[Rfam]
Nucleotides: 152
Base pairs, nucleotide, nucleotide: 006080011076012075016071017069018068019067020066021065022064023063024062039054040053041052042051085151087149088148089147091146092145097137098136
Number, partner (000 for none) and nucleotide at each position: 001000a002000u003000g004000g005000a006080u007000a008000u009000u010000u011076c012075u013000g014000c015000c016071u017069u018068g019067a020066g021065g022064g023063u024062a025000c026000a027000c028000c029000c030000a031000u032000c033000u034000u035000c036000a037000g038000u039054g040053g041052g042051a043000c044000c045000c046000a047000g048000a049000a050000u051042u052041c053040c054039u055000c056000g057000a058000g059000a060000a061000c062024u063023g064022c065021c066020u067019u068018u069017g070000u071016g072000a073000a074000a075012a076011g077000c078000u079000g080006g081000c082000a083000a084000u085151a086000a087149c088148u089147g090000c091146u092145u093000u094000a095000a096000a097137c098136u099000c100000c101000a102000u103000c104000u105000c106000u107000u108000g109000g110000u111000u112000u113000u114000c115000u116000u117000u118000u119000u120000u121000g122000u123000u124000g125000u126000g127000u128000u129000u130000c131000a132000g133000a134000a135000c136098a137097g138000u139000c140000a141000c142000a143000u144000g145092a146091a147089c148088a149087g150000c151085u152000u
This 152-nucleotide sequence from Rhinolophus ferrumequinum belongs to the Rfam family "ODC internal ribosome entry site (IRES)". On this family, see Pyronnet et al., Cell Mol Life Sci 2005: "Alternative splicing facilitates internal ribosome entry on the ornithine decarboxylase mRNA". The family's consensus secondary structure was predicted with mfold. Rfam links the family to the GO term ribosome binding. The match comes from Rfam's covariance-model search (70 bits).